[Rfam]
Nucleotides: 248
Stems, first nucleotide, its partner, number of pairs: 002248006008241004016213004022062001023060006036050005067232002070230004083095004096111006131188002137183001142177003148170002156165003
Number, partner (000 for none) and nucleotide at each position: 001000c002248a003247g004246u005245g006244g007243u008241g009240a010239c011238a012000a013000g014000a015000a016213g017212u018211a019210c020000a021000u022062u023060c024059g025058g026057a027056a028055u029000u030000a031000c032000a033000u034000g035000c036050c037049a038048g039047u040046c041000u042000u043000c044000a045000u046040g047039a048038c049037u050036g051000u052000g053000u054000u055028a056027u057026u058025c059024u060023g061000a062022g063000c064000g065000a066000a067232a068231g069000u070230c071229c072228c073227u074000g075000g076000g077000u078000c079000a080000u081000u082000g083095a084094a085093c086092u087000g088000a089000a090000a091000g092086a093085g094084u095083u096111g097110c098109a099108g100107c101106g102000u103000a104000a105000g106101u107100g108099c109098u110097g111096c112000c113000g114000u115000g116000c117000g118000g119000u120000u121000u122000u123000a124000g125000a126000a127000u128000u129000a130000u131188g132187u133000u134000c135000a136000c137183a138000g139000a140000u141000g142177u143176g144175u145000u146000a147000u148170g149169u150000c151000a152000u153000g154000a155000a156165a157164c158163a159000c160000a161000a162000g163158u164157g165156u166000g167000g168000a169149g170148c171000u172000a173000u174000c175144a176143u177142g178000u179000c180000u181000g182000g183137u184000a185000c186000c187132g188131u189000u190000u191000u192000c193000a194000c195000c196000g197000a198000a199000a200000g201000c202000a203000a204000a205000g206000u207000g208000a209000c210019g211018u212017a213016c214000a215000a216000u217000u218000u219000a220000a221000c222000a223000g224000c225000a226000u227073a228072g229071g230070g231068c232067u233000c234000a235000c236000u237000c238011u239010g240009u241008c242000g243007a244006c245005c246004a247003c248002u